[Rfam]
RNA sequence: UAUAGGUAUUUUAUGAUUAAGAAGCAACUGCCUCUUGUACAUAUCAUUUAUUAAUCG
Numbered sequence: 001u002a003u004a005g006g007u008a009u010u011u012u013a014u015g016a017u018u019a020a021g022a023a024g025c026a027a028c029u030g031c032c033u034c035u036u037g038u039a040c041a042u043a044u045c046a047u048u049u050a051u052u053a054a055u056c057g
Stems, first nucleotide, its partner, number of pairs: 018037005024031002
Plastid-rps18 3UTR RNA: a 57-nucleotide sequence from Amborella trichopoda. By type it is a cis-regulatory element. Plastid rps18 is a non-coding RNA (ncRNA) present in plastids. It was identified as a short stem-loop motif in the 3 prime untranslate region (3UTR) of rps18 gene. Pairs were carried over by alignment from the consensus structure, which was predicted with LocARNA. The match comes from Rfam's covariance-model search (67 bits). Taxonomically the source falls in Amborella (Eukaryota, Viridiplantae, Euphyllophyta, Magnoliopsida).